[Rfam]
RNA sequence: UCAUUAUUUUUAAACACUUGGAGAUCUCUGUGAUAAAUGACUCUUAAAAGUAGUCAUGAUUGGGAGCAUAGGGCUCUGCUCCAUGAUGUACAGUCCCUUUCCAUAAUGUUGGUGAAGAAGCUGGGCCUUGUGUCUGCAUCUGACUAUUUCUACAUCUUCUCAAAGUCCUUUGGGCAAUGACUGAGGAGAUAAACCAUGCAAGAAACAAUG
Numbered sequence: 001u002c003a004u005u006a007u008u009u010u011u012a013a014a015c016a017c018u019u020g021g022a023g024a025u026c027u028c029u030g031u032g033a034u035a036a037a038u039g040a041c042u043c044u045u046a047a048a049a050g051u052a053g054u055c056a057u058g059a060u061u062g063g064g065a066g067c068a069u070a071g072g073g074c075u076c077u078g079c080u081c082c083a084u085g086a087u088g089u090a091c092a093g094u095c096c097c098u099u100u101c102c103a104u105a106a107u108g109u110u111g112g113u114g115a116a117g118a119a120g121c122u123g124g125g126c127c128u129u130g131u132g133u134c135u136g137c138a139u140c141u142g143a144c145u146a147u148u149u150c151u152a153c154a155u156c157u158u159c160u161c162a163a164a165g166u167c168c169u170u171u172g173g174g175c176a177a178u179g180a181c182u183g184a185g186g187a188g189a190u191a192a193a194c195c196a197u198g199c200a201a202g203a204a205a206c207a208a209u210g
Stems, first nucleotide, its partner, number of pairs: 001112003005108003009047002012044001015039002022029002050104002053101001062097004066091001068089003071084001140202001141200002145196001156188006165175004
RNA: Small nucleolar RNA SNORA73 family
Organism: Chinchilla lanigera